Alphaproteobacteria transfer-messenger RNA: a 270-nucleotide RNA. Rfam's curators write: Bacterial tmRNA, also known as 10Sa RNA or SsrA, is named for its dual tRNA and mRNA-like properties. A search with the family's covariance model found it, with a score of 212 bits. The family's consensus secondary structure is taken from published work. A reference for the family is Williams and Bartel (1996), "Phylogenetic analysis of tmRNA secondary structure", RNA.

RNA sequence: AUUGUUGAUCCUGGCGCGGGCCAGGCGUAUACAUCUACUUGCCGGUUCGCCGGCUAUGGGGAUAAACGCAGUCGAAUAAACCAUUCGGACCCGGGGGCGGUACCCGGCGCCUCCACCAGAACCCAUCAUCAGGUGGCUUCCGGCGGGGGCGAAAUAGGAUCGACGAGGGCGUAAAAGGCGAGCUUUCCCCCGGUAUUGUUCCGCCGUUAUCGGGCUACACGCAUAGUUGCCAACGACAACAAUGCUCGGUUUGCUAUCGCUGCUUGAUGC
Numbered sequence: 001a002u003u004g005u006u007g008a009u010c011c012u013g014g015c016g017c018g019g020g021c022c023a024g025g026c027g028u029a030u031a032c033a034u035c036u037a038c039u040u041g042c043c044g045g046u047u048c049g050c051c052g053g054c055u056a057u058g059g060g061g062a063u064a065a066a067c068g069c070a071g072u073c074g075a076a077u078a079a080a081c082c083a084u085u086c087g088g089a090c091c092c093g094g095g096g097g098c099g100g101u102a103c104c105c106g107g108c109g110c111c112u113c114c115a116c117c118a119g120a121a122c123c124c125a126u127c128a129u130c131a132g133g134u135g136g137c138u139u140c141c142g143g144c145g146g147g148g149g150c151g152a153a154a155u156a157g158g159a160u161c162g163a164c165g166a167g168g169g170c171g172u173a174a175a176a177g178g179c180g181a182g183c184u185u186u187c188c189c190c191c192g193g194u195a196u197u198g199u200u201c202c203g204c205c206g207u208u209a210u211c212g213g214g215c216u217a218c219a220c221g222c223a224u225a226g227u228u229g230c231c232a233a234c235g236a237c238a239a240c241a242a243u244g245c246u247c248g249g250u251u252u253g254c255u256a257u258c259g260c261u262g263c264u265u266g267a268u269g270c
Base pairs, nucleotide, nucleotide: 041054042053043052044051045050058190059189060188061187062186068183069182071179072178073177081169082168085166086165087164091107092106093105094104095103108151109150110149111148112147113146114145191206192205193204194203196217198215200214201213202212